This 110-nucleotide sequence from filamentous cyanobacterium CCP5 belongs to the Rfam family "TPP riboswitch aptamer (THI element)". The match comes from Rfam's covariance-model search (62 bits). The source organism's lineage runs through Bacteria, Bacillati and Cyanobacteriota. The base pairs follow the family's consensus structure, which is taken from published work.
[Rfam]
RNA sequence: UUCCAUAGCUAGGGGUGCCCUGCCUUCGUUCUACUGAGGCCGGGCUGAGAUUACACCCUUAGAACCUGACACCGGCUGAUACCGGCGGAGGGAAGCUGUUACUGAGGAAU
Numbered sequence: 001u002u003c004c005a006u007a008g009c010u011a012g013g014g015g016u017g018c019c020c021u022g023c024c025u026u027c028g029u030u031c032u033a034c035u036g037a038g039g040c041c042g043g044g045c046u047g048a049g050a051u052u053a054c055a056c057c058c059u060u061a062g063a064a065c066c067u068g069a070c071a072c073c074g075g076c077u078g079a080u081a082c083c084g085g086c087g088g089a090g091g092g093a094a095g096c097u098g099u100u101a102c103u104g105a106g107g108a109a110u
Base pairs, nucleotide, nucleotide: 006098007097008096009095010094011059012058013057014056016053017045018044019043020042065091066090067089072085073084074083075082